[Rfam]
RNA: DUF3800-II RNA
RNA sequence: UCAACUAGUUACCGGUAACAAAGGCCCGUGUUGGCCAAGUCUAAAGCAAUUUAAACUAGCUGGAUUAACUGACC
Number, nucleotide and partner (000 for none) at each position: 001u000002c000003a000004a000005c000006u000007a070008g069009u068010u067011a000012c063013c062014g061015g060016u059017a000018a000019c000020a000021a000022a000023g036024g035025c034026c033027c000028g000029u000030g000031u000032u000033g026034g025035c024036c023037a000038a057039g056040u055041c000042u053043a052044a051045a000046g000047c000048a000049a000050u000051u044052u043053a042054a000055a040056c039057u038058a000059g016060c015061u014062g013063g012064a000065u000066u000067a010068a009069c008070u007071g000072a000073c000074c000